[Rfam]
RNA sequence: GUCUCUUAUGAUGAACAAAAUCAUAACUUUCGUUCUUCCGAGCAAACCAUGCGGAUGAAACUUGGAGACCUGAACUGAAGAGAC
Numbered sequence: 001g002u003c004u005c006u007u008a009u010g011a012u013g014a015a016c017a018a019a020a021u022c023a024u025a026a027c028u029u030u031c032g033u034u035c036u037u038c039c040g041a042g043c044a045a046a047c048c049a050u051g052c053g054g055a056u057g058a059a060a061c062u063u064g065g066a067g068a069c070c071u072g073a074a075c076u077g078a079a080g081a082g083a084c
Stems, first nucleotide, its partner, number of pairs: 003082004
The record is an 84-nucleotide RNA from Cuscuta australis, which matches "Small nucleolar RNA Z159/U59" in Rfam. NCBI's taxonomy places the organism under Eukaryota, Streptophytina, Tracheophyta, Pentapetalae, Cuscuta sect. Cleistogrammica. Its Rfam clan is "SNORD59 clan". The family has 10 seed sequences and 1,401 matches in Rfam 15.1. It is annotated as a C/D-box small nucleolar RNA. The base pairs follow the family's consensus structure, which was predicted with PFOLD. For this family Rfam cites "The high diversity of snoRNAs in plants: identification and comparative study of 120 snoRNA genes from Oryza sativa" (Chen et al., Nucleic Acids Res, 2003).